[Rfam]
RNA sequence: GGAGCACCGGCUCGUCACGUCGGGUAUCCGGUUGAUAAAAAUACACCGUCCUGCUCAGCGAUAAUGUCCUGCAUGCCUGGCGGAUACUCAUCGAAAACGUGUCUUUCAGAUAAUUGACGAGUUCACGCUUUAUCGCUGGCUUU
Numbered sequence: 001g002g003a004g005c006a007c008c009g010g011c012u013c014g015u016c017a018c019g020u021c022g023g024g025u026a027u028c029c030g031g032u033u034g035a036u037a038a039a040a041a042u043a044c045a046c047c048g049u050c051c052u053g054c055u056c057a058g059c060g061a062u063a064a065u066g067u068c069c070u071g072c073a074u075g076c077c078u079g080g081c082g083g084a085u086a087c088u089c090a091u092c093g094a095a096a097a098c099g100u101g102u103c104u105u106u107c108a109g110a111u112a113a114u115u116g117a118c119g120a121g122u123u124c125a126c127g128c129u130u131u132a133u134c135g136c137u138g139g140c141u142u143u
Stems, first nucleotide, its partner, number of pairs: 025112004030107002048077001050075001052073003058067003080103001083100001116141001118139001120137003